[Rfam]
RNA sequence: AUAGCCCUGCAAAUCCGAAGCCCUAAGUUCCUACUUAGGAGGUUGAGGUAGGAAAUGCGGGGCUAA
Numbered sequence: 001a002u003a004g005c006c007c008u009g010c011a012a013a014u015c016c017g018a019a020g021c022c023c024u025a026a027g028u029u030c031c032u033a034c035u036u037a038g039g040a041g042g043u044u045g046a047g048g049u050a051g052g053a054a055a056u057g058c059g060g061g062g063c064u065a066a
Stems, first nucleotide, its partner, number of pairs: 002065010014053003022039007

Shown here is a 66-nucleotide sequence, a member of the family "DUF3800-VIII RNA". Rfam's curators write: Bacteroidetes, Cyanobacteria, Firmicutes, Planctomycetes (1 example), Proteobacteria, Tenericutes (1 example). By type it is a small RNA.